L31-Actinobacteria ribosomal protein leader: a 48-nucleotide sequence. The family's consensus secondary structure is taken from published work.
RNA sequence: CCGGCUCCGGUUCACGCUCCGCCCACAUGGGGGAACGACCCGGCGGCC
Numbered sequence: 001c002c003g004g005c006u007c008c009g010g011u012u013c014a015c016g017c018u019c020c021g022c023c024c025a026c027a028u029g030g031g032g033g034a035a036c037g038a039c040c041c042g043g044c045g046g047c048c
Base pairs, nucleotide, nucleotide: 003048004047005046007043008042009041010040015037016036018034019033020032022031023030

Clan: Ribosomal Protein L31 Leader clan. For this family Rfam cites "Discovery of 20 novel ribosomal leader candidates in bacteria and archaea" (Eckert and Weinberg, BMC Microbiol, 2020). It is annotated as a cis-regulatory leader.